[Rfam]
RNA sequence: CUUACAGAGUUCAUUGGCAUUCUGUCCACCUCGCAUCAUAGAACAAGUCCUUUUCCCUUCUAUGGUCUUUCAUGAGGUGGCAUACUGCCAACUGGGCUCUGUUGG
Numbered sequence: 001c002u003u004a005c006a007g008a009g010u011u012c013a014u015u016g017g018c019a020u021u022c023u024g025u026c027c028a029c030c031u032c033g034c035a036u037c038a039u040a041g042a043a044c045a046a047g048u049c050c051u052u053u054u055c056c057c058u059u060c061u062a063u064g065g066u067c068u069u070u071c072a073u074g075a076g077g078u079g080g081c082a083u084a085c086u087g088c089c090a091a092c093u094g095g096g097c098u099c100u101g102u103u104g105g
Stems, first nucleotide, its partner, number of pairs: 011095001014091006023082002026080008

Description:
Shown here is a 105-nucleotide RNA from Hibiscus syriacus, a member of the family "MIR394 microRNA precursor family". For this family Rfam cites "Computational identification of plant microRNAs and their targets, including a stress-induced miRNA" (Jones-Rhoades and Bartel, Mol Cell, 2004). The family has 19 seed sequences and 724 matches in Rfam 15.1. The family's consensus secondary structure was predicted with WAR. A search with the family's covariance model found it, with a score of 75 bits.